[Rfam]
RNA sequence: GCAGGCGGCCGGACGAUCGCUGCCAGACCCGAGCCUCGGCAAGGGAAUGGGGGAGGAAAGUCCGAACUCCGCAGGGCAGUGUGCCGGAUAACGUCCGGGAUGCGCGCUUCAAGGCGCGUAGACGGCCAGUGCAACAGAAAAUAGACCGCCUUCUCGCAAGAGACGGUAAGGGUGAAACGGUGGGGUAAGAGCCCACCGCGUUGGUGGUAACACCAACGGCACGGUAAACCCCACACGGAGCAAGACCAAAUAGGCAGGGAGAGCGCCGCAACCACUUCUGCGGCGAGCGCGCGACGGCCCGUCACGCCCAGGAUAGUGGAGCUUGUACCGAAACCUGCGGGUAGGUUGCUGGAGCCAUGCCGUAAGGCAUGGCCUAGAGGAAUGAUCGUCUAAAACAGAAUUCGGCUUACGGGCCGCCUGCACAA
Numbered sequence: 001g002c003a004g005g006c007g008g009c010c011g012g013a014c015g016a017u018c019g020c021u022g023c024c025a026g027a028c029c030c031g032a033g034c035c036u037c038g039g040c041a042a043g044g045g046a047a048u049g050g051g052g053g054a055g056g057a058a059a060g061u062c063c064g065a066a067c068u069c070c071g072c073a074g075g076g077c078a079g080u081g082u083g084c085c086g087g088a089u090a091a092c093g094u095c096c097g098g099g100a101u102g103c104g105c106g107c108u109u110c111a112a113g114g115c116g117c118g119u120a121g122a123c124g125g126c127c128a129g130u131g132c133a134a135c136a137g138a139a140a141a142u143a144g145a146c147c148g149c150c151u152u153c154u155c156g157c158a159a160g161a162g163a164c165g166g167u168a169a170g171g172g173u174g175a176a177a178c179g180g181u182g183g184g185g186u187a188a189g190a191g192c193c194c195a196c197c198g199c200g201u202u203g204g205u206g207g208u209a210a211c212a213c214c215a216a217c218g219g220c221a222c223g224g225u226a227a228a229c230c231c232c233a234c235a236c237g238g239a240g241c242a243a244g245a246c247c248a249a250a251u252a253g254g255c256a257g258g259g260a261g262a263g264c265g266c267c268g269c270a271a272c273c274a275c276u277u278c279u280g281c282g283g284c285g286a287g288c289g290c291g292c293g294a295c296g297g298c299c300c301g302u303c304a305c306g307c308c309c310a311g312g313a314u315a316g317u318g319g320a321g322c323u324u325g326u327a328c329c330g331a332a333a334c335c336u337g338c339g340g341g342u343a344g345g346u347u348g349c350u351g352g353a354g355c356c357a358u359g360c361c362g363u364a365a366g367g368c369a370u371g372g373c374c375u376a377g378a379g380g381a382a383u384g385a386u387c388g389u390c391u392a393a394a395a396c397a398g399a400a401u402u403c404g405g406c407u408u409a410c411g412g413g414c415c416g417c418c419u420g421c422a423c424a425a
Base pairs, nucleotide, nucleotide: 001421002420003419004418005417006416007415008414009413010412011410012390013389014388015387016386017385018384020053021052023050024049025048028045029044030043058408059407060406062405063404064403065402066401067240068239069238070237074324075323076322077321079236080235081234082233083232084098085097086096087095088094099123101120102119103118104117105116106115107114108113124231125230129229130228131225132224146171147170148167149166150165152163153162154161155160179197180196181195182194183193184192198220199218200217201216202215203214204213205212206211244347245346246345247344254338255337256336257335258334316328317327318326354373355372356371357370358369359368360367361366